[Rfam]
RNA sequence: GGAUAUCACUUUUUGCUAUCCCCGGCCAAUAACACAAUGACAAGUAGGAUAACUUUUUCACAUGUCAUUGUGUUAUUGGCUGCAAAUAGCAAAACAAUGUUAUCC
Numbered sequence: 001g002g003a004u005a006u007c008a009c010u011u012u013u014u015g016c017u018a019u020c021c022c023c024g025g026c027c028a029a030u031a032a033c034a035c036a037a038u039g040a041c042a043a044g045u046a047g048g049a050u051a052a053c054u055u056u057u058u059c060a061c062a063u064g065u066c067a068u069u070g071u072g073u074u075a076u077u078g079g080c081u082g083c084a085a086a087u088a089g090c091a092a093a094a095c096a097a098u099g100u101u102a103u104c105c
Base pairs, nucleotide, nucleotide: 002104003103004102005101011094012093013092014091015090016089017088018087019086023082024081025080026079027078028077029076030075031074032073033072034071035070036069037068038067039066040065041064042063044061045060047058048057049056
RNA: MIR6274 microRNA precursor family